[Rfam]
About this RNA
This 90-nucleotide RNA sequence from Ceuthmochares aereus belongs to the Rfam family "Small nucleolar RNA U83B". The source organism's lineage runs through Eukaryota, Opisthokonta, Archosauria, Theropoda and Ceuthmochares. A search with the family's covariance model found it, with a score of 41 bits.
RNA sequence: GUUGUGCAGUGAUGAGGCACAGAAUUUACACUGAGCAGUAUCUGAUGCCCAUGGGGAGUGUCUCUGGACUGCAUUUCUUCUGAGAGGAGC
Numbered sequence: 001g002u003u004g005u006g007c008a009g010u011g012a013u014g015a016g017g018c019a020c021a022g023a024a025u026u027u028a029c030a031c032u033g034a035g036c037a038g039u040a041u042c043u044g045a046u047g048c049c050c051a052u053g054g055g056g057a058g059u060g061u062c063u064c065u066g067g068a069c070u071g072c073a074u075u076u077c078u079u080c081u082g083a084g085a086g087g088a089g090c
Stems, first nucleotide, its partner, number of pairs: 001090003005086001
About the family: U83B belongs to the C/D family of snoRNAs. U83B like U83A has no documented RNA target and they share the same host gene with the C/D box snoRNA U43 (RPL3). N.B. U83A/B/C have no sequence similarity with the U83 snoRNA that was cloned by Jady and Kiss (2000). By type it is a C/D-box small nucleolar RNA. On this family, see Jady and Kiss, Nucleic Acids Res 2000: "Characterisation of the U83 and U84 small nucleolar RNAs: two novel 2'-O-ribose methylation guide RNAs that lack complementarities to ribosomal RNAs".